Background: The family of this 74-nucleotide RNA from Oryzias melastigma is "mir-27 microRNA precursor family".
RNA sequence: CUCAGAUGCAGAACUUAGUUCAUUAGUGAGCAUCCAUCCAAACCUGUUCACAGUGGCUAAGUUCAGUCUCUGAC
Numbered sequence: 001c002u003c004a005g006a007u008g009c010a011g012a013a014c015u016u017a018g019u020u021c022a023u024u025a026g027u028g029a030g031c032a033u034c035c036a037u038c039c040a041a042a043c044c045u046g047u048u049c050a051c052a053g054u055g056g057c058u059a060a061g062u063u064c065a066g067u068c069u070c071u072g073a074c
Stems, first nucleotide, its partner, number of pairs: 011064010026051007
On this family, see Chen et al., Genes Dev 2005: "The developmental miRNA profiles of zebrafish as determined by small RNA cloning". Its family is annotated with RISC complex and miRNA-mediated post-transcriptional gene silencing in the Gene Ontology.